[Rfam]
RNA sequence: GACGACAGCCGCGACUGGCGUUCACGUGGACCACCACGGGGAAGCGGCCCACGGGAUCCGAGCCGCACGCCUGGGCUCGCCGG
Number, nucleotide and partner (000 for none) at each position: 001g000002a000003c053004g052005a000006c000007a000008g048009c047010c046011g045012c044013g000014a000015c041016u040017g071018g070019c069020g068021u067022u000023c000024a000025c000026g037027u036028g035029g034030a000031c000032c000033a000034c029035c028036a027037c026038g000039g000040g016041g015042a000043a000044g012045c011046g010047g009048c008049c000050c000051a000052c004053g003054g000055g000056a000057u000058c000059c000060g078061a077062g076063c075064c074065g000066c000067a021068c020069g019070c018071c017072u000073g000074g064075g063076c062077u061078c060079g000080c000081c000082g000083g000
Shown here is an 83-nucleotide RNA from Pseudoclavibacter chungangensis, a member of the family "ZMP/ZTP riboswitch aptamer (pfl RNA motif)". Its family is annotated with regulation of purine nucleotide biosynthetic process and one-carbon metabolic process in the Gene Ontology. The literature on the family includes a 2015 paper in Nat Struct Mol Biol by Jones and Ferre-D'Amare, "Recognition of the bacterial alarmone ZMP through long-distance association of two RNA subdomains". The base pairs follow the family's consensus structure, which is taken from published work. Lineage of the source: Bacteria > Actinomycetes > Micrococcales > Microbacteriaceae > Pseudoclavibacter.